A member of the RNA family "Editing element of GABA-3 exon 9" from Astyanax mexicanus, 54 nucleotides long.
Lineage of the source: Eukaryota > Metazoa > Actinopteri > Acestrorhamphinae > Astyanax.
A reference for the family is Ohlson et al. (2007), "Editing modifies the GABA(A) receptor subunit alpha3", RNA.
It is annotated as a cis-regulatory element.

[Rfam]
RNA sequence: AAGGUAUCGUACGCCACGGCCAUGGACUGGUUCAUUGCGGUCUGCUUUGCGUUC
Numbered sequence: 001a002a003g004g005u006a007u008c009g010u011a012c013g014c015c016a017c018g019g020c021c022a023u024g025g026a027c028u029g030g031u032u033c034a035u036u037g038c039g040g041u042c043u044g045c046u047u048u049g050c051g052u053u054c
Stems, first nucleotide, its partner, number of pairs: 002053002008049001011046001013045002016041002019038002022035005